[Rfam]
RNA sequence: CCUUAACGAGAAUCUGAUACGGUUCCAGUCAGACCAGAGGGGAAAGACGCUAAUACAGGUUCGCAACC
Numbered sequence: 001c002c003u004u005a006a007c008g009a010g011a012a013u014c015u016g017a018u019a020c021g022g023u024u025c026c027a028g029u030c031a032g033a034c035c036a037g038a039g040g041g042g043a044a045a046g047a048c049g050c051u052a053a054u055a056c057a058g059g060u061u062c063g064c065a066a067c068c
Stems, first nucleotide, its partner, number of pairs: 010062007017054002020049002023044004029038002
This 68-nucleotide RNA from Nematostella vectensis belongs to the Rfam family "mir-9437 microRNA precursor family". The sequence is in the family's curated seed alignment.